[Rfam]
RNA: GIR1 branching ribozyme
Organism: Naegleria sp. SUM3V/I
RNA sequence: CUGUUAUUGGAGGAUAUUGAAGUCAUGCGAUGGGGUUUAUACUUUUAUUUGCCAAAACGGGACCUCUGUUGAGGUAUAGAUCUCGCAAGAGGUUGAAUAUUCCGUACUAAGGAUCUCUGAUCCGGAAAGUCUAGAGACUACACGGCAAAGCCAUAGUGGCUAGUAUAAAUGGAUAGUCCCUAGUUAACCAUCUAGGCAUCCCAUACAAAAUGGUUU
Numbered sequence: 001c002u003g004u005u006a007u008u009g010g011a012g013g014a015u016a017u018u019g020a021a022g023u024c025a026u027g028c029g030a031u032g033g034g035g036u037u038u039a040u041a042c043u044u045u046u047a048u049u050u051g052c053c054a055a056a057a058c059g060g061g062a063c064c065u066c067u068g069u070u071g072a073g074g075u076a077u078a079g080a081u082c083u084c085g086c087a088a089g090a091g092g093u094u095g096a097a098u099a100u101u102c103c104g105u106a107c108u109a110a111g112g113a114u115c116u117c118u119g120a121u122c123c124g125g126a127a128a129g130u131c132u133a134g135a136g137a138c139u140a141c142a143c144g145g146c147a148a149a150g151c152c153a154u155a156g157u158g159g160c161u162a163g164u165a166u167a168a169a170u171g172g173a174u175a176g177u178c179c180c181u182a183g184u185u186a187a188c189c190a191u192c193u194a195g196g197c198a199u200c201c202c203a204u205a206c207a208a209a210a211u212g213g214u215u216u
Base pairs, nucleotide, nucleotide: 003214004213005212006211007210008209012028014026015025016023017022019069030204031203032202033201034200035199036169037168038167039166051178053176057105058104059103060102062081063074064073065072106130107129136174139145150160151159152158153157180195181194182193183192